[Rfam]
RNA: Small nucleolar RNA SNORA17
RNA sequence: GGUGCCCCUCGAGGCGUUGCAGAUGUGGCUGCGGUGCCCCAUUUGUGUCAUGAGGUGGCAGAGAGGAUAAGGCUAUGUCUACGCUCCGUGUUCAAAAAUUUGUGAGCACGCAGAAUGAUUAAUAGCCUGACAGU
Numbered sequence: 001g002g003u004g005c006c007c008c009u010c011g012a013g014g015c016g017u018u019g020c021a022g023a024u025g026u027g028g029c030u031g032c033g034g035u036g037c038c039c040c041a042u043u044u045g046u047g048u049c050a051u052g053a054g055g056u057g058g059c060a061g062a063g064a065g066g067a068u069a070a071g072g073c074u075a076u077g078u079c080u081a082c083g084c085u086c087c088g089u090g091u092u093c094a095a096a097a098a099u100u101u102g103u104g105a106g107c108a109c110g111c112a113g114a115a116u117g118a119u120u121a122a123u124a125g126c127c128u129g130a131c132a133g134u
Stems, first nucleotide, its partner, number of pairs: 003060004007055005013049003019046004024041002027038003070128007082117002085114002088111001089108005